[Rfam]
RNA sequence: GAAAAGUGGAGUUCAGAUACCACAAAAAAAAACGAGGCGAAACCGAAAAGCCAGACGAGUAGGAAAUUU
Numbered sequence: 001g002a003a004a005a006g007u008g009g010a011g012u013u014c015a016g017a018u019a020c021c022a023c024a025a026a027a028a029a030a031a032a033c034g035a036g037g038c039g040a041a042a043c044c045g046a047a048a049a050g051c052c053a054g055a056c057g058a059g060u061a062g063g064a065a066a067u068u069u
Stems, first nucleotide, its partner, number of pairs: 006023004036052003043063002
The family of this 69-nucleotide RNA from Flavobacterium sp. CS20 is "DUF805 RNA". The family's consensus secondary structure is taken from published work. Lineage of the source: Bacteria > Pseudomonadati > Flavobacteriia > Flavobacteriales > Flavobacterium. Rfam 15.1 lists 281 matches to the family in 219 species. By type it is a cis-regulatory element. The match comes from Rfam's covariance-model search (78 bits).